RNA sequence: AUCCAUCUUCGGGGCAGGGUGAAAUUCCCGACCGGCGGUAUUUGAAGAUUCCCUCUUCAUCAGCCCGUGAGCUGAACGUUUUCUAGUUAAACGUUUUGCUGAUCUGGUGCAAUUCCAGAGCCGACAGUAUAGUCUGGAUGGGAGAAGAUGUCG
Number, nucleotide and partner (000 for none) at each position: 001a000002u000003c000004c150005a149006u148007c147008u146009u145010c144011g000012g000013g000014g000015c000016a000017g029018g028019g027020u000021g000022a000023a000024a000025u000026u000027c019028c018029c017030g000031a133032c132033c123034g122035g068036c067037g066038g065039u000040a000041u000042u000043u000044g000045a000046a000047g000048a000049u000050u000051c000052c000053c000054u000055c000056u000057u000058c000059a000060u000061c000062a000063g121064c120065c038066c037067g036068u035069g000070a000071g099072c098073u000074g000075a000076a000077c000078g000079u000080u000081u000082u000083c000084u000085a000086g000087u000088u000089a000090a000091a000092c000093g000094u000095u000096u000097u000098g072099c071100u000101g000102a000103u119104c118105u117106g116107g115108u000109g000110c000111a000112a000113u000114u000115c107116c106117a105118g104119a103120g064121c063122c034123g033124a000125c136126a135127g134128u000129a000130u000131a000132g032133u031134c127135u126136g125137g000138a000139u000140g000141g000142g000143a000144g010145a009146a008147g007148a006149u005150g004151u000152c000153g000

Source information:
The family of this 153-nucleotide RNA sequence from Fictibacillus aquaticus is "FMN riboswitch aptamer (RFN element)". The RFN element is a highly conserved domain that is found frequently in the 5'-untranslated regions of prokaryotic mRNAs that encode for flavin mononucleotide (FMN) biosynthesis and transport proteins.